This 300-nucleotide RNA from Pan troglodytes belongs to the Rfam family "Metazoan signal recognition particle RNA". From the family's description: The signal recognition particle (SRP) is a universally conserved ribonucleoprotein.
[Rfam]
RNA sequence: GCUGGGCAUGGUGGCUUGUGCCUGUAGUUCCAGCUACUUGGGAGGCAGAGGUAGGAAGAUUGCUUGAGUUCAGGAGCUCUGGGCUGUAGUGCACUAUGCCAAUCAGGUGUCUGCACUAAGUUCAGCAUCAAUAUGGUGACCUCAUAGGAGUAGGGGACCACCAGGUUGCCUAAGGAGGGGUGAACCAGCCCAGGUUGGAAAUAGAGCAGGUCAAAAUUCCCAUGCUGAUCAGUAGUGGGAUUGCACCUAUGAAUAGCCAUUGCACUCCAGCGUGUGCAACAUAGUGAGACCCUGUCUCUU
Numbered sequence: 001g002c003u004g005g006g007c008a009u010g011g012u013g014g015c016u017u018g019u020g021c022c023u024g025u026a027g028u029u030c031c032a033g034c035u036a037c038u039u040g041g042g043a044g045g046c047a048g049a050g051g052u053a054g055g056a057a058g059a060u061u062g063c064u065u066g067a068g069u070u071c072a073g074g075a076g077c078u079c080u081g082g083g084c085u086g087u088a089g090u091g092c093a094c095u096a097u098g099c100c101a102a103u104c105a106g107g108u109g110u111c112u113g114c115a116c117u118a119a120g121u122u123c124a125g126c127a128u129c130a131a132u133a134u135g136g137u138g139a140c141c142u143c144a145u146a147g148g149a150g151u152a153g154g155g156g157a158c159c160a161c162c163a164g165g166u167u168g169c170c171u172a173a174g175g176a177g178g179g180g181u182g183a184a185c186c187a188g189c190c191c192a193g194g195u196u197g198g199a200a201a202u203a204g205a206g207c208a209g210g211u212c213a214a215a216a217u218u219c220c221c222a223u224g225c226u227g228a229u230c231a232g233u234a235g236u237g238g239g240a241u242u243g244c245a246c247c248u249a250u251g252a253a254u255a256g257c258c259a260u261u262g263c264a265c266u267c268c269a270g271c272g273u274g275u276g277c278a279a280c281a282u283a284g285u286g287a288g289a290c291c292c293u294g295u296c297u298c299u300u
Stems, first nucleotide, its partner, number of pairs: 001046003004023008028043003048298008060287005068277002071274002074271001079270005085264007094256004099251001105248006111239002114237005120230001122228007129168004134163005141156003145152002169175002177220005188211003195204003